[Rfam]
RNA sequence: GGAUGACCGAUCUCUCUUGGUGUUCAGAGGCUCAGGUCUUCAUCUAGCACCAUUUGAAAUCGGUUAUAA
Numbered sequence: 001g002g003a004u005g006a007c008c009g010a011u012c013u014c015u016c017u018u019g020g021u022g023u024u025c026a027g028a029g030g031c032u033c034a035g036g037u038c039u040u041c042a043u044c045u046a047g048c049a050c051c052a053u054u055u056g057a058a059a060u061c062g063g064u065u066a067u068a069a
Stems, first nucleotide, its partner, number of pairs: 003067002005064001007063005013057002018052005026045003
Dot-bracket structure: ..(((.(((((.((...(((((...(((..............)))..)))))...)).)))))).))..